[Rfam]
RNA sequence: CGCUCUGUUACCUUCGGGGGCUGAAUAUGCGUAGCGGGGAGAGUUUGGAUCAGCGAGGGUUCUGCUGCGUUGACUUGGUGUUCUACUUGGUUUACCGUCGGUCUUUGGAGGAGCGCCACUGUAAAGAGGUGGUUCUCGACCGUUAAAGCGGAGGAAACGGGUCAGGCCGGAGACGGAACAACCCACCUUGCGCGGGAAGCCGUUGUAGAAGCACACCGAGGAGUAAG
Numbered sequence: 001c002g003c004u005c006u007g008u009u010a011c012c013u014u015c016g017g018g019g020g021c022u023g024a025a026u027a028u029g030c031g032u033a034g035c036g037g038g039g040a041g042a043g044u045u046u047g048g049a050u051c052a053g054c055g056a057g058g059g060u061u062c063u064g065c066u067g068c069g070u071u072g073a074c075u076u077g078g079u080g081u082u083c084u085a086c087u088u089g090g091u092u093u094a095c096c097g098u099c100g101g102u103c104u105u106u107g108g109a110g111g112a113g114c115g116c117c118a119c120u121g122u123a124a125a126g127a128g129g130u131g132g133u134u135c136u137c138g139a140c141c142g143u144u145a146a147a148g149c150g151g152a153g154g155a156a157a158c159g160g161g162u163c164a165g166g167c168c169g170g171a172g173a174c175g176g177a178a179c180a181a182c183c184c185a186c187c188u189u190g191c192g193c194g195g196g197a198a199g200c201c202g203u204u205g206u207a208g209a210a211g212c213a214c215a216c217c218g219a220g221g222a223g224u225a226a227g
Base pairs, nucleotide, nucleotide: 011018012017060226061225074220075219076218077217078216079215080214081213082209083208084207085206086205089201090200091199092198093197095195096194097193098192099142100141101140102139103138109136110135111134112133114131115130116129117128119126120125143147148191149190150189152188153187154186159184160183161182162181167176168175169174
Protozoan signal recognition particle RNA: a 227-nucleotide RNA sequence from Trypanosoma theileri. For this family Rfam cites "Towards the structure of the mammalian signal recognition particle" (Wild et al., Curr Opin Struct Biol, 2002). Its Rfam clan is "SRP clan". Gene Ontology terms of the family: SRP-dependent cotranslational protein targeting to membrane, signal sequence recognition and signal recognition particle, endoplasmic reticulum targeting.